[Rfam]
RNA sequence: UUAGGUUAGGUUUGUGGUUGAAAAUCGAUGCCAGUCGCAGGCAAAACGAUCCACGUAAGUUAAAUAAAAUGUUUAAUGAGCAUGGUGCGGUUUAGAGGUAAGUCCUGCCGUCUUAAAAGGCGAGAGUGUCAGUAGUGAGAGGUUAAUUCCGAGUAGCGACAGCUCCAGCAGGCGAGUGUGGGGUCAAAAACCAGGUCAACUAACUUAA
Number, nucleotide and partner (000 for none) at each position: 001u208002u207003a206004g205005g204006u203007u202008a201009g200010g000011u000012u199013u198014g197015u193016g192017g191018u190019u189020g000021a000022a000023a000024a000025u000026c000027g000028a179029u178030g177031c041032c000033a092034g091035u090036c089037g088038c087039a086040g000041g031042c000043a000044a000045a000046a000047c000048g000049a000050u085051c084052c000053a000054c000055g000056u000057a000058a077059g000060u075061u000062a073063a072064a000065u000066a000067a000068a000069a000070u000071g000072u063073u062074u000075a060076a000077u058078g000079a000080g000081c000082a000083u186084g051085g050086u039087g038088c037089g036090g035091u034092u033093u000094a000095g000096a000097g000098g000099u000100a000101a000102g000103u000104c172105c171106u170107g169108c168109c122110g121111u120112c119113u118114u000115a000116a000117a000118a113119g112120g111121c110122g109123a000124g000125a000126g165127u000128g163129u162130c000131a000132g000133u000134a000135g157136u156137g000138a000139g000140a000141g150142g149143u000144u000145a000146a000147u000148u000149c142150c141151g000152a000153g000154u000155a000156g136157c135158g000159a000160c000161a000162g129163c128164u000165c126166c000167a000168g108169c107170a106171g105172g104173c000174g000175a000176g000177u030178g029179u028180g000181g000182g000183g000184u000185c000186a083187a000188a000189a019190a018191c017192c016193a015194g000195g000196u000197c014198a013199a012200c009201u008202a007203a006204c005205u004206u003207a002208a001